[Rfam]
RNA: mir-989 microRNA precursor family
Organism: Aedes aegypti
RNA sequence: GUCAUGGGGGACCGCCGCUACCUCGCUUUCACUUGGUACCGAUUUCCCAUAAUCCAUGUGAUGUGACGUAGUGGUACCUUCCCUUGG
Numbered sequence: 001g002u003c004a005u006g007g008g009g010g011a012c013c014g015c016c017g018c019u020a021c022c023u024c025g026c027u028u029u030c031a032c033u034u035g036g037u038a039c040c041g042a043u044u045u046c047c048c049a050u051a052a053u054c055c056a057u058g059u060g061a062u063g064u065g066a067c068g069u070a071g072u073g074g075u076a077c078c079u080u081c082c083c084u085u086g087g
Stems, first nucleotide, its partner, number of pairs: 003086002006083005015074007023066004029061004034056003